[Rfam]
RNA sequence: AUACCUUUCUCGGCCUUUUGGCUAAGAGCAAGUGUAAUAUCGGUUCUUAUUAUUUUAUUAUUUGAUACGUGGGUCAUGAGCCUACGAUGAUAUUAAAUUUAUUUUCAUUACUAGCAAAAAUAACCGUGCGUUGUAACGGGUGAAAAAAUUCUAAUGAUAAUAUACAUUUUUCAUUUUUCAUGUAUAAUGUUGUCAAUGACAA
Numbered sequence: 001a002u003a004c005c006u007u008u009c010u011c012g013g014c015c016u017u018u019u020g021g022c023u024a025a026g027a028g029c030a031a032g033u034g035u036a037a038u039a040u041c042g043g044u045u046c047u048u049a050u051u052a053u054u055u056u057a058u059u060a061u062u063u064g065a066u067a068c069g070u071g072g073g074u075c076a077u078g079a080g081c082c083u084a085c086g087a088u089g090a091u092a093u094u095a096a097a098u099u100u101a102u103u104u105u106c107a108u109u110a111c112u113a114g115c116a117a118a119a120a121u122a123a124c125c126g127u128g129c130g131u132u133g134u135a136a137c138g139g140g141u142g143a144a145a146a147a148a149u150u151c152u153a154a155u156g157a158u159a160a161u162a163u164a165c166a167u168u169u170u171u172c173a174u175u176u177u178u179c180a181u182g183u184a185u186a187a188u189g190u191u192g193u194c195a196a197u198g199a200c201a202a
Base pairs, nucleotide, nucleotide: 008027009026010025012023013022014021015020048067049066050065051064052063069085070084071083072082073081074080114152116150117149121145129138130137131136155195156194157193158192159191160190162185163184164183165182166181167180
This 202-nucleotide RNA from Oryza glumipatula belongs to the Rfam family "U2 spliceosomal RNA".
The family's RNA type in Rfam is spliceosomal small nuclear RNA.
Lineage of the source: Eukaryota > Tracheophyta > Magnoliopsida > Oryzinae > Oryza.
U2 is a small nuclear RNA (snRNA) component of the spliceosome (involved in pre-mRNA splicing). Complementary binding between U2 snRNA (in an area lying towards the 5' end but 3' to hairpin I) and the branchpoint sequence (BPS) of the intron results the bulging out of an unpaired adenosine, on the BPS, which initiates a nucleophilic attack at the intronic 5' splice site, thus starting the first of two transesterification reactions that mediate splicing.
The family is grouped with related families in Rfam's "U2 clan".
A reference for the family is Zwieb (1997), "The uRNA database", Nucleic Acids Res.